[Rfam]
RNA sequence: CGUAUGGUGUCCGGCACAAGAUGACCGGAUAGCGAUACGGCCUAACGAGGU
Numbered sequence: 001c002g003u004a005u006g007g008u009g010u011c012c013g014g015c016a017c018a019a020g021a022u023g024a025c026c027g028g029a030u031a032g033c034g035a036u037a038c039g040g041c042c043u044a045a046c047g048a049g050g051u
Stems, first nucleotide, its partner, number of pairs: 001039005007033002011028004015023001

Source information:
Rfam assigns this 51-nucleotide sequence from Arsukibacterium ikkense to the family "L31-Gammaproteobacteria ribosomal protein leader". It is one of the family's seed sequences. Clan: Ribosomal Protein L31 Leader clan.